[Rfam]
RNA sequence: GCGUCUUUAUCUCAGUGGACAGAGUGCUUGGUUUCGACCCAAGUUGUCGGGAGUUCGAAUCUCUCAAGGCGCA
Numbered sequence: 001g002c003g004u005c006u007u008u009a010u011c012u013c014a015g016u017g018g019a020c021a022g023a024g025u026g027c028u029u030g031g032u033u034u035c036g037a038c039c040c041a042a043g044u045u046g047u048c049g050g051g052a053g054u055u056c057g058a059a060u061c062u063c064u065c066a067a068g069g070c071g072c073a
Stems, first nucleotide, its partner, number of pairs: 001072007011024003027043005049065005
Shown here is a 73-nucleotide RNA sequence from Paenibacillus polymyxa, a member of the family "tRNA". It is annotated as a transfer RNA. For this family Rfam cites "tRNAscan-SE: a program for improved detection of transfer RNA genes in genomic sequence" (Lowe and Eddy, Nucleic Acids Res, 1997).